[Rfam]
RNA sequence: UCACUGGCCAACGGUGGGGUCUGAAGGAAGCGAUAGGAAGUUAACAGUACACAACGCAAGUAAACCUGCUUCGGCAGUAUAGGUGGGUAAGCGUCCGAAAUAUCGCGAAGCCCUAUACUCAGUCAGACCUAUGCUGUGCUUGAGGGUGGCAUCGUUAAUAGGGAGUCAGUGC
Numbered sequence: 001u002c003a004c005u006g007g008c009c010a011a012c013g014g015u016g017g018g019g020u021c022u023g024a025a026g027g028a029a030g031c032g033a034u035a036g037g038a039a040g041u042u043a044a045c046a047g048u049a050c051a052c053a054a055c056g057c058a059a060g061u062a063a064a065c066c067u068g069c070u071u072c073g074g075c076a077g078u079a080u081a082g083g084u085g086g087g088u089a090a091g092c093g094u095c096c097g098a099a100a101u102a103u104c105g106c107g108a109a110g111c112c113c114u115a116u117a118c119u120c121a122g123u124c125a126g127a128c129c130u131a132u133g134c135u136g137u138g139c140u141u142g143a144g145g146g147u148g149g150c151a152u153c154g155u156u157a158a159u160a161g162g163g164a165g166u167c168a169g170u171g172c
Stems, first nucleotide, its partner, number of pairs: 001017006030172003034168001041158005047152001050148003065145003074137003078133007085113004091106003
RNA: Group II catalytic intron D1-D4-3
Organism: Photobacterium damselae